[Rfam]
RNA sequence: GUGGGGUUCGGGAUGAACUGGUUGAUCCGCUCACCGAUCACCGCCCAGGUGCGCUUGCCGUCCCGCAGCAUCUGCACACCGCGGCGCUUGAACUCCUU
Numbered sequence: 001g002u003g004g005g006g007u008u009c010g011g012g013a014u015g016a017a018c019u020g021g022u023u024g025a026u027c028c029g030c031u032c033a034c035c036g037a038u039c040a041c042c043g044c045c046c047a048g049g050u051g052c053g054c055u056u057g058c059c060g061u062c063c064c065g066c067a068g069c070a071u072c073u074g075c076a077c078a079c080c081g082c083g084g085c086g087c088u089u090g091a092a093c094u095c096c097u098u
Stems, first nucleotide, its partner, number of pairs: 006039001008037004014033002018029001020027002043054002046051001079090001081088001
Record summary: The record is a 98-nucleotide RNA from Mycobacterium kiyosense, which matches "Mycobacterium sRNA Ms_AS-1" in Rfam. It is annotated as a small RNA.